[Rfam]
Nucleotides: 075
Base pairs, nucleotide, nucleotide: 004072005071006070007069010066011065012064013063014062015061016060020057021056024052026050027049028048029047
Number, partner (000 for none) and nucleotide at each position: 001000g002000g003000g004072u005071u006070g007069u008000a009000a010066a011065a012064u013063c014062u015061c016060u017000g018000c019000a020057g021056g022000c023000a024052a025000c026050u027049g028048u029047g030000g031000a032000a033000a034000g035000g036000u037000g038000a039000c040000c041000u042000u043000g044000u045000c046000a047029c048028a049027c050026a051000u052024u053000g054000g055000c056021c057020u058000g059000a060016a061015g062014g063013g064012a065011u066010u067000a068000u069007a070006c071005a072004a073000a074000c075000u
A member of the RNA family "mir-216 microRNA precursor family" from Petromyzon marinus, 75 nucleotides long. Rfam's curators put it in the seed alignment. NCBI's taxonomy places the organism under Eukaryota, Metazoa, Eumetazoa, Bilateria, Petromyzon.